[Rfam]
Source information
Rfam assigns this 79-nucleotide sequence from Kribbella flavida to the family "SAH (S-adenosyl-L-homocysteine) riboswitch aptamer". Rfam links the family to the GO terms regulation of gene expression and S-adenosylhomocysteine metabolic process. A search with the family's covariance model found it, with a score of 39 bits. The base pairs follow the family's consensus structure, which is taken from published work.
RNA sequence: CAGGUCGAGAGGCGCUGCAACGGGCCGGAGGCCCGCCACGCUCGACCCGAUGUUCAGACCGCAAGGGCGCCUCCGGAGA
Number, nucleotide and partner (000 for none) at each position: 001c000002a000003g047004g046005u045006c044007g043008a042009g000010a000011g000012g000013c000014g000015c000016u000017g000018c000019a000020a000021c035022g034023g033024g032025c031026c030027g000028g000029a000030g026031g025032c024033c023034c022035g021036c000037c000038a000039c000040g000041c000042u008043c007044g006045a005046c004047c003048c000049g000050a000051u000052g000053u000054u000055c000056a000057g000058a000059c000060c000061g000062c000063a000064a000065g000066g000067g000068c000069g000070c000071c000072u000073c000074c000075g000076g000077a000078g000079a000